Shown here is a 145-nucleotide RNA from Castor canadensis, a member of the family "Small nucleolar RNA SNORA48".
Rfam describes the family as follows. The snoRNA ACA 48 has been identified to guide pseudouridylation of the residue U3797 in the 28S rRNA subunit.
The family is grouped with related families in Rfam's "SNORA48 clan".
Pairs were carried over by alignment from the consensus structure, which was predicted with RNAalifold.
The family has 24 seed sequences and 2,109 matches in Rfam 15.1.
Lineage of the source: Eukaryota > Amniota > Theria > Euarchontoglires > Castor.
[Rfam]
RNA sequence: UGAUACUGCAAUGGGCAAAGAGACACUUUGUUGGUGGUGUUGCUCUUACAUCAGUCGAGGGCAGAGCAAAAUGACAGUCCUUUGUUCAUCCUAGCUUGCUGCCUGGAUCAGUGGCCAAAAGCUGUUUCAUGCCUAGGGCACAUUA
Numbered sequence: 001u002g003a004u005a006c007u008g009c010a011a012u013g014g015g016c017a018a019a020g021a022g023a024c025a026c027u028u029u030g031u032u033g034g035u036g037g038u039g040u041u042g043c044u045c046u047u048a049c050a051u052c053a054g055u056c057g058a059g060g061g062c063a064g065a066g067c068a069a070a071a072u073g074a075c076a077g078u079c080c081u082u083u084g085u086u087c088a089u090c091c092u093a094g095c096u097u098g099c100u101g102c103c104u105g106g107a108u109c110a111g112u113g114g115c116c117a118a119a120a121g122c123u124g125u126u127u128c129a130u131g132c133c134u135a136g137g138g139c140a141c142a143u144u145a
Stems, first nucleotide, its partner, number of pairs: 001063002004060001007057002012053003018047003022041006083140005098133001100131001104129003109124002112121001
Dot-bracket structure: ((.(..((...(((...(((.((((((........))))))...)))...)))..))..).))...................(((((..........(.(...(((..((.(........).))..))).).)..))))).....